[Rfam]
RNA: Iron response element I
RNA sequence: CCUCCUGCUUCAACAGUGUUUGGACAGAACAGG
Numbered sequence: 001c002c003u004c005c006u007g008c009u010u011c012a013a014c015a016g017u018g019u020u021u022g023g024a025c026a027g028a029a030c031a032g033g
Stems, first nucleotide, its partner, number of pairs: 001033002003029001005027001007025001009024005014018001